RNA sequence: UUCUCGGGGAAUUCGCUGGGAAUUCUCUGGGAAUUUUCUGGGAAUUCUCGGGGAAUUCUCGGGGAAUUCUCCGGGAA
Numbered sequence: 001u002u003c004u005c006g007g008g009g010a011a012u013u014c015g016c017u018g019g020g021a022a023u024u025c026u027c028u029g030g031g032a033a034u035u036u037u038c039u040g041g042g043a044a045u046u047c048u049c050g051g052g053g054a055a056u057u058c059u060c061g062g063g064g065a066a067u068u069c070u071c072c073g074g075g076a077a
Stems, first nucleotide, its partner, number of pairs: 001077009012066002017061015033046001035044003
The family of this 77-nucleotide sequence from Helopsaltes ochotensis is "Epstein-Barr virus stable intronic sequence RNA 2". A reference for the family is Moss et al. (2014), "RNA families in Epstein-Barr virus", RNA Biol. The organism belongs to Helopsaltes, within Eukaryota.